Description:
A member of the RNA family "Small nucleolar RNA SNORA75" from Jaculus jaculus, 136 nucleotides long. Taxonomically the source falls in Jaculus (Eukaryota, Craniata, Euteleostomi, Tetrapoda). The literature on the family includes a 1997 paper in Genes Dev by Ganot et al., "The family of box ACA small nucleolar RNAs is defined by an evolutionarily conserved secondary structure and ubiquitous sequence elements essential for RNA accumulation". The base pairs follow the family's consensus structure, which was predicted with PFOLD. Gene Ontology terms of the family: nucleolus and RNA processing.
RNA sequence: GUCUUCUCAUUGAGCUCCUUUCUGUCAAUUGGUGACAGUUAUGGAUUCGCACGAGAAGAAGAGAGAGUUCACACAACUAGCGUUACCUUACCUUCUGUUUUUACAGAGGUAUAUUUGGCUAUUUUGUGAGACAGCU
Numbered sequence: 001g002u003c004u005u006c007u008c009a010u011u012g013a014g015c016u017c018c019u020u021u022c023u024g025u026c027a028a029u030u031g032g033u034g035a036c037a038g039u040u041a042u043g044g045a046u047u048c049g050c051a052c053g054a055g056a057a058g059a060a061g062a063g064a065g066a067g068u069u070c071a072c073a074c075a076a077c078u079a080g081c082g083u084u085a086c087c088u089u090a091c092c093u094u095c096u097g098u099u100u101u102u103a104c105a106g107a108g109g110u111a112u113a114u115u116u117g118g119c120u121a122u123u124u125u126g127u128g129a130g131a132c133a134g135c136u
Stems, first nucleotide, its partner, number of pairs: 003058006014050002016045003022038005069129005092109006